This 99-nucleotide RNA from Artemisia annua belongs to the Rfam family "Small nucleolar RNA R12". Rfam 15.1 lists 992 matches to the family in 220 species. Rfam describes the family as follows. snoR12 is a C/D box small nucleolar RNA, which acts as a methylation guide for 25S ribosomal RNA in plants. snoR12 has been alternatively named snoZ44 in Arabidopsis and snoZ131 in rice. A search with the family's covariance model found it, with a score of 70 bits. Its family is annotated with nucleolus and RNA processing in the Gene Ontology.
Nucleotides: 099
Stems, first nucleotide, its partner, number of pairs: 001099005
Number, partner (000 for none) and nucleotide at each position: 001099a002098u003097g004096g005095g006000g007000a008000u009000g010000a011000u012000g013000a014000a015000a016000a017000a018000a019000u020000c021000a022000g023000a024000c025000a026000g027000a028000u029000u030000c031000c032000c033000a034000a035000u036000g037000a038000u039000u040000u041000u042000c043000u044000c045000u046000a047000a048000a049000u050000g051000g052000u053000a054000u055000g056000a057000u058000a059000a060000a061000u062000g063000u064000g065000g066000a067000a068000u069000g070000u071000g072000a073000u074000c075000u076000u077000a078000c079000a080000a081000c082000c083000a084000g085000c086000u087000a088000c089000u090000u091000c092000u093000g094000a095005c096004c097003c098002a099001u